A member of the RNA family "MIR2629 microRNA precursor family" from Medicago truncatula, 69 nucleotides long. The source organism's lineage runs through Eukaryota, Tracheophyta, Mesangiospermae, Gunneridae and Medicago. A search with the family's covariance model found it, with a score of 71 bits. Rfam links the family to the GO terms miRNA-mediated post-transcriptional gene silencing and RISC complex.
[Rfam]
RNA sequence: UGCCGAAGUUUUCCUCGAUAGUUAACUGCAGCCGAUUCCAUAAUUCGGCAGUUAACUACCAAAGAACAU
Numbered sequence: 001u002g003c004c005g006a007a008g009u010u011u012u013c014c015u016c017g018a019u020a021g022u023u024a025a026c027u028g029c030a031g032c033c034g035a036u037u038c039c040a041u042a043a044u045u046c047g048g049c050a051g052u053u054a055a056c057u058a059c060c061a062a063a064g065a066a067c068a069u
Base pairs, nucleotide, nucleotide: 012065013064015062017060019058020057021056022055023054024053025052026051027050028049029048